[Rfam]
RNA sequence: AACCGAUAAUCGCAAACCUUUUGAAAAAAAGGGACGCAAAACCUAUGGGCCUAAGGAUCCAUGUCUAUGGCAGCCAGGUUACCGAA
Numbered sequence: 001a002a003c004c005g006a007u008a009a010u011c012g013c014a015a016a017c018c019u020u021u022u023g024a025a026a027a028a029a030a031g032g033g034a035c036g037c038a039a040a041a042c043c044u045a046u047g048g049g050c051c052u053a054a055g056g057a058u059c060c061a062u063g064u065c066u067a068u069g070g071c072a073g074c075c076a077g078g079u080u081a082c083c084g085a086a
Base pairs, nucleotide, nucleotide: 012037013036017032018031019030020029021028022027040080041079042078043077046076047075048074049071050070051069056065057064058063